[Rfam]
RNA: nadA riboswitch
RNA sequence: GGUUGCAACAUCCCCGUGGGUUGGGUGCAGGUUCCGUUGGGCCGGCACAGUGAAUCCACUGCAACU
Numbered sequence: 001g002g003u004u005g006c007a008a009c010a011u012c013c014c015c016g017u018g019g020g021u022u023g024g025g026u027g028c029a030g031g032u033u034c035c036g037u038u039g040g041g042c043c044g045g046c047a048c049a050g051u052g053a054a055u056c057c058a059c060u061g062c063a064a065c066u
Stems, first nucleotide, its partner, number of pairs: 001066007013052001014050001016059007023051001025048004030043005